RNA sequence: GCGGGAUACGUCCCGCCGGAAUGUGGCUUAAGACCUAAGCUGAACCAUGAA
Numbered sequence: 001g002c003g004g005g006a007u008a009c010g011u012c013c014c015g016c017c018g019g020a021a022u023g024u025g026g027c028u029u030a031a032g033a034c035c036u037a038a039g040c041u042g043a044a045c046c047a048u049g050a051a
Base pairs, nucleotide, nucleotide: 001016002015003014004013005012018046019045025041026040027039028038029037
RNA: eL15-Euryarchaeota ribosomal protein leader